[Rfam]
Nucleotides: 134
Base pairs, nucleotide, nucleotide: 002052003051004050005049019047020046021045022044025041027039028038077122078121088110089109090108092106093105
Number, partner (000 for none) and nucleotide at each position: 001000u002052u003051g004050c005049a006000g007000u008000c009000a010000a011000u012000u013000a014000a015000g016000c017000c018000g019047a020046c021045c022044a023000a024000c025041c026000a027039c028038u029000g030000u031000u032000g033000c034000u035000a036000u037000c038028a039027g040000c041025g042000g043000c044022u045021g046020g047019u048000g049005u050004g051003c052002a053000c054000u055000g056000u057000c058000u059000g060000c061000a062000c063000a064000c065000a066000g067000c068000a069000a070000u071000u072000c073000c074000c075000u076000u077122g078121g079000c080000u081000g082000u083000g084000u085000a086000c087000g088110u089109g090108c091000c092106c093105u094000g095000u096000u097000a098000g099000u100000u101000g102000u103000a104000c105093a106092g107000a108090g109089c110088a111000c112000c113000u114000u115000a116000a117000g118000g119000g120000a121078c122077c123000u124000u125000g126000g127000g128000a129000a130000c131000a132000u133000a134000u

Source information:
This 134-nucleotide RNA sequence from Ophiophagus hannah belongs to the Rfam family "Small nucleolar RNA SNORA70". The family's consensus secondary structure was predicted with PFOLD. It scores 110 bits against the family's covariance model. Lineage of the source: Eukaryota > Opisthokonta > Unidentata > Serpentes > Ophiophagus. Rfam links the family to the GO terms RNA processing and nucleolus. By type it is an H/ACA-box small nucleolar RNA. About the family: snoRNA U70 seems to be exclusive to mammals and is a member of the H/ACA class of snoRNA which contain H (ANANNA) and ACA box motifs. H/ACA box snoRNAs are involved in the conversion of uridines to pseudouridines (5-ribosyluracil) a constituent of structural RNAs (transfer, ribosomal, small nuclear, and small nucleolar). The family has 43 seed sequences and 5,173 matches in Rfam 15.1.